[Rfam]
RNA sequence: GCUCUUGGAUCCCGAUACAGCCCUCGAAUGAGCCUGCAACAUUUUUCUUAUAUGAUCAGGUUCUAUUACUGCUUGCUGGGAGUCUGAGAUGAUUAUGGCAGUUGAAGUGGGCCAGGGACCCAGAGC
Numbered sequence: 001g002c003u004c005u006u007g008g009a010u011c012c013c014g015a016u017a018c019a020g021c022c023c024u025c026g027a028a029u030g031a032g033c034c035u036g037c038a039a040c041a042u043u044u045u046u047c048u049u050a051u052a053u054g055a056u057c058a059g060g061u062u063c064u065a066u067u068a069c070u071g072c073u074u075g076c077u078g079g080g081a082g083u084c085u086g087a088g089a090u091g092a093u094u095a096u097g098g099c100a101g102u103u104g105a106a107g108u109g110g111g112c113c114a115g116g117g118a119c120c121c122a123g124a125g126c
Stems, first nucleotide, its partner, number of pairs: 001126003005123004010118004020112004056087006063080002069075001